[Rfam]
RNA: LOOT RNA
RNA sequence: UGCCUAAACCUCUUAUGAGGCAUGGCAUAUAAGACCUAUCGCUGAUACUGAACCCCGUGUUCAGCGACUCAGCGAUGGGCUAUAUUCCGAAAGGUUUAUAGGGUCGUAAGACCU
Numbered sequence: 001u002g003c004c005u006a007a008a009c010c011u012c013u014u015a016u017g018a019g020g021c022a023u024g025g026c027a028u029a030u031a032a033g034a035c036c037u038a039u040c041g042c043u044g045a046u047a048c049u050g051a052a053c054c055c056c057g058u059g060u061u062c063a064g065c066g067a068c069u070c071a072g073c074g075a076u077g078g079g080c081u082a083u084a085u086u087c088c089g090a091a092a093g094g095u096u097u098a099u100a101g102g103g104u105c106g107u108a109a110g111a112c113c114u
Stems, first nucleotide, its partner, number of pairs: 001027004009020004035079011046066001048064006081100004087094002101114005